[Rfam]
RNA sequence: AGAACCAUUUGAAUCAAGUAAUGUAGUGAUUCAAAGGGUUCUCGAUG
Dot-bracket structure: ((((((.(((((((((..........))))))))).)))))).....